[Rfam]
RNA sequence: CCCUCCUACAAAUGUGUGUUUGCUUCCCUGUCUUUGGACACAUAAGAAUUGGAGGAAAAGAAAAGUGGAUUUGGAGAUAUCUGGGCCUGCUUAUUCCCCUUGGGAUCAGAAUCAAUCAUCCCAUAUAA
Numbered sequence: 001c002c003c004u005c006c007u008a009c010a011a012a013u014g015u016g017u018g019u020u021u022g023c024u025u026c027c028c029u030g031u032c033u034u035u036g037g038a039c040a041c042a043u044a045a046g047a048a049u050u051g052g053a054g055g056a057a058a059a060g061a062a063a064a065g066u067g068g069a070u071u072u073g074g075a076g077a078u079a080u081c082u083g084g085g086c087c088u089g090c091u092u093a094u095u096c097c098c099c100u101u102g103g104g105a106u107c108a109g110a111a112u113c114a115a116u117c118a119u120c121c122c123a124u125a126u127a128a
Base pairs, nucleotide, nucleotide: 002055003054004053005052006051015042016041017040018039019038020037021036022028067121068120069119071118090104091103092102093101